Rfam assigns this 225-nucleotide RNA sequence from Teichococcus deserti to the family "permuted transfer-messenger RNA". Pairs were carried over by alignment from the consensus structure, which is taken from published work. A reference for the family is Williams and Bartel (1996), "Phylogenetic analysis of tmRNA secondary structure", RNA. Rfam's curators write: Bacterial tmRNA, also known as 10Sa RNA or SsrA, is named for its dual tRNA and mRNA-like properties. Its role is to liberate the mRNA from a stalled ribosome. To accomplish this part of the tmRNA is used as a reading frame that ends in a translation stop signal. The broken mRNA is replaced in the ribosome by the tmRNA and translation of the tmRNA leads to addition of a proteolysis tag to the incomplete protein enabling recognition by a protease. It scores 138 bits against the family's covariance model.
[Rfam]
RNA sequence: GGUGAUAAACGGCAUGUGGAAUAAGCGUUGCGGACCCGGGGGCAGUGCCCGGCGUCUCCACCAGCAACUACCGGCCCUGGAUCGUGGGGCGGCGCUUGCGGGGACGAAACAGGCUCGACGCGCGUGGUAAAGCCAUGUCUUUUGCCCGGCAUUGUACCGCCGUCAUCGGGCUAUAUCACAAGUGCCAACGAUAACGGUCGCGAGACCGUGGCGCUCGCUGCCUAA
Numbered sequence: 001g002g003u004g005a006u007a008a009a010c011g012g013c014a015u016g017u018g019g020a021a022u023a024a025g026c027g028u029u030g031c032g033g034a035c036c037c038g039g040g041g042g043c044a045g046u047g048c049c050c051g052g053c054g055u056c057u058c059c060a061c062c063a064g065c066a067a068c069u070a071c072c073g074g075c076c077c078u079g080g081a082u083c084g085u086g087g088g089g090c091g092g093c094g095c096u097u098g099c100g101g102g103g104a105c106g107a108a109a110c111a112g113g114c115u116c117g118a119c120g121c122g123c124g125u126g127g128u129a130a131a132g133c134c135a136u137g138u139c140u141u142u143u144g145c146c147c148g149g150c151a152u153u154g155u156a157c158c159g160c161c162g163u164c165a166u167c168g169g170g171c172u173a174u175a176u177c178a179c180a181a182g183u184g185c186c187a188a189c190g191a192u193a194a195c196g197g198u199c200g201c202g203a204g205a206c207c208g209u210g211g212c213g214c215u216c217g218c219u220g221c222c223u224a225a
Stems, first nucleotide, its partner, number of pairs: 001146005014136003026124003030121003036052005053106007147162004